[Rfam]
RNA sequence: CACCGCUUGGUGAAAAUAUUGCCGCAUAGGACGGGGUUAAGUAGGCUUCGGCUCGAACAAUCUCGCAGGCAAACAAGGAC
Numbered sequence: 001c002a003c004c005g006c007u008u009g010g011u012g013a014a015a016a017u018a019u020u021g022c023c024g025c026a027u028a029g030g031a032c033g034g035g036g037u038u039a040a041g042u043a044g045g046c047u048u049c050g051g052c053u054c055g056a057a058c059a060a061u062c063u064c065g066c067a068g069g070c071a072a073a074c075a076a077g078g079a080c
Base pairs, nucleotide, nucleotide: 001012002011003010004009020071021070022069023068032065033064034063035062036061037060038059044054045053
RNA: RT-18 RNA